[Rfam]
RNA sequence: UAAUUCUCAACUGGCAUGUAGGCUGAAGAACUCGGAAAUUGAGUGUUGUCAUCAGCUUCGUCUCUUAUCAAAUGAGAUUGGAGUUAAAUAACAGCACAACAUUU
Numbered sequence: 001u002a003a004u005u006c007u008c009a010a011c012u013g014g015c016a017u018g019u020a021g022g023c024u025g026a027a028g029a030a031c032u033c034g035g036a037a038a039u040u041g042a043g044u045g046u047u048g049u050c051a052u053c054a055g056c057u058u059c060g061u062c063u064c065u066u067a068u069c070a071a072a073u074g075a076g077a078u079u080g081g082a083g084u085u086a087a088a089u090a091a092c093a094g095c096a097c098a099a100c101a102u103u104u
Stems, first nucleotide, its partner, number of pairs: 043097006054085006061077004
Source information
Rfam assigns this 104-nucleotide RNA from Elaeis guineensis to the family "Small nucleolar RNA snoR97". It is annotated as an H/ACA-box small nucleolar RNA.